[Rfam]
Nucleotides: 056
Stems, first nucleotide, its partner, number of pairs: 006024006012017001031051006
Number, partner (000 for none) and nucleotide at each position: 001000c002000u003000c004000g005000g006024a007023c008022c009021c010020g011019g012017u013000g014000c015000a016000a017012g018000c019011c020010c021009g022008g023007g024006u025000g026000g027000c028000u029000c030000u031051u032050c033049c034048g035047g036046c037000c038000g039000c040000c041000g042000a043000u044000c045000c046036g047035c048034c049033g050032g051031a052000c053000c054000a055000c056000g